[Rfam]
RNA sequence: AAUGAUACUCUGACAAAGGAACUGACUUGCUUUCUAGACACAGUAAGUGCUAACUGUUGGGGUAUCUUUG
Numbered sequence: 001a002a003u004g005a006u007a008c009u010c011u012g013a014c015a016a017a018g019g020a021a022c023u024g025a026c027u028u029g030c031u032u033u034c035u036a037g038a039c040a041c042a043g044u045a046a047g048u049g050c051u052a053a054c055u056g057u058u059g060g061g062g063u064a065u066c067u068u069u070g
Stems, first nucleotide, its partner, number of pairs: 004066008013057003018051002021048003025044003

About this RNA:
The family of this 70-nucleotide RNA sequence from Nothobranchius furzeri is "miR-430 microRNA precursor family". It scores 53 bits against the family's covariance model. The base pairs follow the family's consensus structure, which was predicted with RNAalifold. Taxonomically the source falls in Nothobranchius (Eukaryota, Craniata, Euteleosteomorpha, Nothobranchiidae).